RNA sequence: CCAAAGGCUCUUUUCAGAGCCACCCACAUACUCUGGAAAAGGACUG
Numbered sequence: 001c002c003a004a005a006g007g008c009u010c011u012u013u014u015c016a017g018a019g020c021c022a023c024c025c026a027c028a029u030a031c032u033c034u035g036g037a038a039a040a041g042g043a044c045u046g
Base pairs, nucleotide, nucleotide: 006021007020008019009018010017011016